This 75-nucleotide sequence from Alligator mississippiensis belongs to the Rfam family "Mammalian CPEB3 ribozyme". The source organism's lineage runs through Eukaryota, Euteleostomi, Sarcopterygii, Archelosauria and Alligator.

RNA sequence: AGUCGUAAGUUUGAGGCCACGGCAGAAGUGCUCAUGGUGCAGCCUGCCAGAUUCCAACAAUCUGUGAAUUGUGCU
Numbered sequence: 001a002g003u004c005g006u007a008a009g010u011u012u013g014a015g016g017c018c019a020c021g022g023c024a025g026a027a028g029u030g031c032u033c034a035u036g037g038u039g040c041a042g043c044c045u046g047c048c049a050g051a052u053u054c055c056a057a058c059a060a061u062c063u064g065u066g067a068a069u070u071g072u073g074c075u
Base pairs, nucleotide, nucleotide: 015044016043017042021075022074023073024072026070027069028040029039030038048064049063050062051061052060053059
Dot-bracket structure: ..............[[[...((((.(((((.......))).]]]...((((((.....))))))....)).))))